[Rfam]
RNA sequence: ACCUUAUACAAAUGUAUUAAACGCAAGACAGUUUAGCAUUUCCCUGUAAGGUGGUGUUAAAUAGAAGCUUUAACGAUAAGUGCUAUUGUGUAACUAUUAAAGUUGAAAUAGUAUGAGUUAAAGUGGAAUAGGUUAAUCGUAAGACCUUAAGUUGAAAAACUUUAAAAUUGACCUUAAAUACUUUUAUAAUUAUUAAGUUACGGUAAA
Numbered sequence: 001a002c003c004u005u006a007u008a009c010a011a012a013u014g015u016a017u018u019a020a021a022c023g024c025a026a027g028a029c030a031g032u033u034u035a036g037c038a039u040u041u042c043c044c045u046g047u048a049a050g051g052u053g054g055u056g057u058u059a060a061a062u063a064g065a066a067g068c069u070u071u072a073a074c075g076a077u078a079a080g081u082g083c084u085a086u087u088g089u090g091u092a093a094c095u096a097u098u099a100a101a102g103u104u105g106a107a108a109u110a111g112u113a114u115g116a117g118u119u120a121a122a123g124u125g126g127a128a129u130a131g132g133u134u135a136a137u138c139g140u141a142a143g144a145c146c147u148u149a150a151g152u153u154g155a156a157a158a159a160c161u162u163u164a165a166a167a168u169u170g171a172c173c174u175u176a177a178a179u180a181c182u183u184u185u186a187u188a189a190u191u192a193u194u195a196a197g198u199u200a201c202g203g204u205a206a207a
Base pairs, nucleotide, nucleotide: 001052002051003050004049005048006047007046008045010041011040012039013038014037015036018035019034020033021032022031023029067124068123069122070121071120072119073118074117081113082112083111084110085109086108087107092104093103095101130147131146132145133144134143136204137203138202139201140200141199142168149162150161151160152159153158173197174196175195176194177193
Dot-bracket structure: ((((((((.((((((..((((((.....).)))))))))))...))))))))..............((((((((......(((((((....((.(.....).))..)))))))...)))))))).....[[[[[.(((((((]]]]].(((((....))))).....)....(((((...............))))).))))))...